Record summary
The family of this 64-nucleotide RNA from Rarobacter faecitabidus is "Actino-pnp RNA". Pairs were carried over by alignment from the consensus structure, which is taken from published work.

[Rfam]
Nucleotides: 064
Stems, first nucleotide, its partner, number of pairs: 002063006009056005017048005023042003027039004
Number, partner (000 for none) and nucleotide at each position: 001000u002063u003062c004061g005060g006059u007058c008000c009056u010055c011054g012053g013052u014000a015000g016000u017048g018047a019046c020045u021044u022000c023042c024041g025040c026000c027039a028038c029037g030036c031000g032000g033000c034000a035000c036030g037029c038028g039027u040025g041024c042023g043000u044021g045020a046019g047018u048017c049000u050000c051000g052013a053012u054011c055010g056009a057000a058007g059006a060005c061004c062003g063002g064000c